[Rfam]
RNA: TPP riboswitch aptamer (THI element)
RNA sequence: AACAAAAGCACGGGGUGCCGUUAUGGCUGAGAUUAUACCCGAUACCUGAUUUGGAUAAUGCCAACGUAGGGAUUGCAAUGUGAAUCUUUG
Numbered sequence: 001a002a003c004a005a006a007a008g009c010a011c012g013g014g015g016u017g018c019c020g021u022u023a024u025g026g027c028u029g030a031g032a033u034u035a036u037a038c039c040c041g042a043u044a045c046c047u048g049a050u051u052u053g054g055a056u057a058a059u060g061c062c063a064a065c066g067u068a069g070g071g072a073u074u075g076c077a078a079u080g081u082g083a084a085u086c087u088u089u090g
Base pairs, nucleotide, nucleotide: 008076009075010074011041012040013039014038016035017027018026019025020024045070046069047068048067051064052063053062054061